[Rfam]
RNA sequence: GCCGGUCCUCGGUAGUGGCCGCCGGGCACGCGCCCGACGGCUUCGAUCGAAGGCCGGC
Numbered sequence: 001g002c003c004g005g006u007c008c009u010c011g012g013u014a015g016u017g018g019c020c021g022c023c024g025g026g027c028a029c030g031c032g033c034c035c036g037a038c039g040g041c042u043u044c045g046a047u048c049g050a051a052g053g054c055c056g057g058c
Stems, first nucleotide, its partner, number of pairs: 001058007009050005017042005023036005
Shown here is a 58-nucleotide RNA sequence from Pseudonocardia hydrocarbonoxydans, a member of the family "Actino-pnp RNA". The family's consensus secondary structure is taken from published work. Lineage of the source: Bacteria > Actinomycetota > Actinomycetes > Pseudonocardiales > Pseudonocardia. It scores 66 bits against the family's covariance model. By type it is a cis-regulatory element.